[Rfam]
The record is a 211-nucleotide RNA sequence from Nonomuraea jiangxiensis, which matches "Actinobacteria sRNA Ms_IGR-5" in Rfam. The pairing is the family consensus, mapped onto this sequence. It is annotated as a small RNA. The source organism's lineage runs through Bacteria, Actinomycetes, Streptosporangiales, Streptosporangiaceae and Nonomuraea.

RNA sequence: ACGCGGAAAGGAGGUGGUCCGAAUAAUGGUGAGUCAUAGUCGGGCUAGCGAGGUGGUUGUCCGCUAACGGCGCGGACUGUUGUCUCGUGUCGUUCGCGAAUUCGAGGCAACCACCGGGGCCCCUGGCAGCCGGAGGCGGGAUCCCAUCCCGACCAUGGUCCAUCCGGCCCGCUUGCGUCGCAGGCGGAGUGAUGCCCGGGGCCCUUUUUCA
Numbered sequence: 001a002c003g004c005g006g007a008a009a010g011g012a013g014g015u016g017g018u019c020c021g022a023a024u025a026a027u028g029g030u031g032a033g034u035c036a037u038a039g040u041c042g043g044g045c046u047a048g049c050g051a052g053g054u055g056g057u058u059g060u061c062c063g064c065u066a067a068c069g070g071c072g073c074g075g076a077c078u079g080u081u082g083u084c085u086c087g088u089g090u091c092g093u094u095c096g097c098g099a100a101u102u103c104g105a106g107g108c109a110a111c112c113a114c115c116g117g118g119g120c121c122c123c124u125g126g127c128a129g130c131c132g133g134a135g136g137c138g139g140g141a142u143c144c145c146a147u148c149c150c151g152a153c154c155a156u157g158g159u160c161c162a163u164c165c166g167g168c169c170c171g172c173u174u175g176c177g178u179c180g181c182a183g184g185c186g187g188a189g190u191g192a193u194g195c196c197c198g199g200g201g202c203c204c205u206u207u208u209u210c211a
Stems, first nucleotide, its partner, number of pairs: 013061006062098003066094003070090004075084003116205008125196004130187003